[Rfam]
RNA sequence: GGUCAGCAGAUAAGACCUAAAACAGUCGCACUCAAAGCGGACAGUUACACGCUUAAAACAACUUA
Number, nucleotide and partner (000 for none) at each position: 001g017002g016003u015004c014005a000006g000007c000008a000009g027010a026011u025012a000013a000014g004015a003016c002017c001018u000019a000020a000021a000022a000023c000024a000025g011026u010027c009028g000029c000030a000031c000032u000033c000034a000035a000036a053037g052038c051039g050040g000041a000042c000043a000044g000045u000046u000047a000048c000049a000050c039051g038052c037053u036054u000055a000056a000057a000058a000059c000060a000061a000062c000063u000064u000065a000
Overview:
The family of this 65-nucleotide sequence is "GP20-b RNA". Rfam classes the family as a cis-regulatory element.